[Rfam]
RNA: transfer-messenger RNA
RNA sequence: GGGGUCGAUCCGGCUUCGACGUGGGUCGCGAAGCAGAGCAGGGCAUGUCGAGCACCAGUAAGCUCGUAAAUCCACUGGAAAACUACAAACGCCAACGACGAGCGUUUCGCUUUAGCCGCUUAAGUGCGGUAAGCCGCUACACUGAUUUGUCUUUGGGUCAGGUAAGGUAACACUUACAGUAGCGUCAUUUACAAAGAAUCGGGUUUGUCUGGGUCACUCGUUCAAACCUUAACUUAAUGUGAAUCGCCAAGGAAGGGCCGGUCGGUAGGCAUGAUCCAAGGUUAAAACUUAAAAUUAUCCGACUAAACAUGUAGAACUGCCUGUAGAGGGCUUGCGGACGCGGGUUCAAUUCCCGCCGACUCCACCA
Number, nucleotide and partner (000 for none) at each position: 001g363002g362003g361004g360005u359006c358007g357008a000009u000010c000011c000012g000013g000014c000015u000016u000017c000018g000019a000020c336021g335022u334023g333024g332025g331026u330027c329028g000029c000030g000031a000032a000033g324034c323035a322036g321037a000038g320039c319040a318041g317042g000043g000044c311045a310046u309047g308048u307049c066050g065051a064052g063053c062054a000055c078056c077057a076058g075059u074060a000061a000062g053063c052064u051065c050066g049067u000068a000069a000070a000071u000072c000073c000074a059075c058076u057077g056078g055079a000080a000081a000082a000083c000084u000085a000086c000087a000088a000089a000090c000091g000092c000093c000094a000095a000096c000097g000098a000099c000100g000101a000102g000103c000104g000105u000106u000107u000108c000109g000110c000111u000112u133113u132114a000115g130116c129117c128118g127119c126120u000121u000122a000123a000124g000125u000126g119127c118128g117129g116130u115131a000132a113133g112134c000135c184136g183137c182138u181139a180140c179141a000142c161143u000144g159145a158146u157147u000148u000149g000150u197151c196152u195153u194154u193155g192156g000157g146158u145159c144160a000161g142162g000163u000164a000165a000166g000167g000168u000169a000170a000171c000172a000173c000174u000175u000176a000177c000178a000179g140180u139181a138182g137183c136184g135185u000186c000187a000188u000189u000190u000191a000192c155193a154194a153195a152196g151197a150198a000199u000200c000201g000202g228203g227204u226205u225206u224207g223208u000209c000210u000211g000212g244213g000214u242215c241216a240217c239218u000219c000220g000221u000222u000223c207224a206225a205226a204227c203228c202229u000230u000231a000232a000233c000234u000235u000236a000237a000238u000239g217240u216241g215242a214243a000244u212245c000246g282247c281248c280249a000250a000251g277252g276253a275254a000255g000256g000257g270258c269259c268260g000261g303262u302263c301264g300265g000266u000267a295268g259269g258270c257271a000272u000273g000274a000275u253276c252277c251278a000279a000280g248281g247282u246283u000284a000285a000286a000287a000288c000289u000290u000291a000292a000293a000294a000295u267296u000297a000298u000299c000300c264301g263302a262303c261304u000305a000306a000307a048308c047309a046310u045311g044312u000313a000314g000315a000316a000317c041318u040319g039320c038321c036322u035323g034324u033325a000326g000327a000328g000329g027330g026331c025332u024333u023334g022335c021336g020337g000338a000339c000340g356341c355342g354343g353344g352345u000346u000347c000348a000349a000350u000351u000352c344353c343354c342355g341356c340357c007358g006359a005360c004361u003362c002363c001364a000365c000366c000367a000